[Rfam]
RNA sequence: UAAUAUCAUUAUAUAAAAGCUUGUAUAAGUUCGUAAUGGGACGAGCGUUUCUACCAACUGCCUUAACAGUUGACUACAGGUUUCCGCAAAACCGGA
Numbered sequence: 001u002a003a004u005a006u007c008a009u010u011a012u013a014u015a016a017a018a019g020c021u022u023g024u025a026u027a028a029g030u031u032c033g034u035a036a037u038g039g040g041a042c043g044a045g046c047g048u049u050u051c052u053a054c055c056a057a058c059u060g061c062c063u064u065a066a067c068a069g070u071u072g073a074c075u076a077c078a079g080g081u082u083u084c085c086g087c088a089a090a091a092c093c094g095g096a
Stems, first nucleotide, its partner, number of pairs: 018082008029046006055072006
RNA: Purine riboswitch aptamer